[Rfam]
Shown here is a 129-nucleotide RNA from Chrysochloris asiatica, a member of the family "Small nucleolar RNA SNORA30/SNORA37 family".
Gene Ontology terms of the family: RNA processing and nucleolus.
On this family, see Huttenhofer et al., EMBO J 2001: "RNomics: an experimental approach that identifies 201 candidates for novel, small, non-messenger RNAs in mouse".
It scores 132 bits against the family's covariance model.
By type it is an H/ACA-box small nucleolar RNA.
The family has 11 seed sequences and 407 matches in Rfam 15.1.
The family's consensus secondary structure was predicted with RNAfold.
NCBI's taxonomy places the organism under Eukaryota, Vertebrata, Afrotheria, Afrosoricida, Chrysochloris.
The members of this family belong to the H/ACA class of snoRNAs that guide the sites of modification of uridines to pseudouridines. This family includes human ACA30 (SNORA30), ACA37 (SNORA37) and the mouse homolog MBI-26. Both ACA37 and ACA30 are predicted to guide the pseudouridylation of residue U4643 of 28S rRNA.
RNA sequence: CCAGCACUUUCACAGGUCCUCCCUUGGAUUGUGGGGCCAGGAUUUGGUAGCUGGUGCUGAGAGAAAACCCUUGGUUGCAUCCUUGCCCUGGGUCUGUGCCAGUGGCAGCAGUCAAUCAUUGGGACAGAG
Numbered sequence: 001c002c003a004g005c006a007c008u009u010u011c012a013c014a015g016g017u018c019c020u021c022c023c024u025u026g027g028a029u030u031g032u033g034g035g036g037c038c039a040g041g042a043u044u045u046g047g048u049a050g051c052u053g054g055u056g057c058u059g060a061g062a063g064a065a066a067a068c069c070c071u072u073g074g075u076u077g078c079a080u081c082c083u084u085g086c087c088c089u090g091g092g093u094c095u096g097u098g099c100c101a102g103u104g105g106c107a108g109c110a111g112u113c114a115a116u117c118a119u120u121g122g123g124a125c126a127g128a129g
Base pairs, nucleotide, nucleotide: 003058004057005056006055007054008053013046014045015044017042018041019040020039022036023035024034025033068123069122070121072118073117074116076114077113079112080111083108084107085106086105087104088102089101090100091099